[Rfam]
RNA sequence: UUCUGAAAAAGGCAAACUUCACCGAAAGGGAAGGACGCAAAGCUCUGAGCCUGUUCACUGCAUGACGCAGUGUAUGGUCGUCAAGCCGCCGGA
Numbered sequence: 001u002u003c004u005g006a007a008a009a010a011g012g013c014a015a016a017c018u019u020c021a022c023c024g025a026a027a028g029g030g031a032a033g034g035a036c037g038c039a040a041a042g043c044u045c046u047g048a049g050c051c052u053g054u055u056c057a058c059u060g061c062a063u064g065a066c067g068c069a070g071u072g073u074a075u076g077g078u079c080g081u082c083a084a085g086c087c088g089c090c091g092g093a
Base pairs, nucleotide, nucleotide: 012038013037017033018032019031020030022029023028042086043085044084046083047082048081049078050077051076056072057071058070059069060068061067